[Rfam]
RNA sequence: UGGUAGAUGCACCUUGAUCUUCAACUCCCCUAACUGGUUACGCGCCUUUAGGGGGUUUUUUA
Dot-bracket structure: .(((......))).............(((((((..(........)..)))))))........
The family of this 62-nucleotide RNA sequence from Cylindrospermopsis raciborskii is "Nitrogen stress-induced RNA 1". The match comes from Rfam's covariance-model search (46 bits). By type it is a small RNA.